Rfam assigns this 112-nucleotide sequence from Acer yangbiense to the family "Small nucleolar RNA snoR100".
The source organism's lineage runs through Eukaryota, Mesangiospermae, Gunneridae, Hippocastanoideae and Acer.
The literature on the family includes a 2002 paper in Curr Biol by Marker et al., "Experimental RNomics: identification of 140 candidates for small non-messenger RNAs in the plant Arabidopsis thaliana".
The family has 9 seed sequences and 1,851 matches in Rfam 15.1.

RNA sequence: UAAUGAAGGAAGCAUGGUUAUGUGAUAAAUCAAAAUUACGAAAUUGGGUCUGCAUGUCUGCCCCUCGUGAAAAUUCUCUGUGAUUUUGGGGCCUGGUUUAUGACUUACACUU
Numbered sequence: 001u002a003a004u005g006a007a008g009g010a011a012g013c014a015u016g017g018u019u020a021u022g023u024g025a026u027a028a029a030u031c032a033a034a035a036u037u038a039c040g041a042a043a044u045u046g047g048g049u050c051u052g053c054a055u056g057u058c059u060g061c062c063c064c065u066c067g068u069g070a071a072a073a074u075u076c077u078c079u080g081u082g083a084u085u086u087u088g089g090g091g092c093c094u095g096g097u098u099u100a101u102g103a104c105u106u107a108c109a110c111u112u
Stems, first nucleotide, its partner, number of pairs: 013024003046094005056084003060078001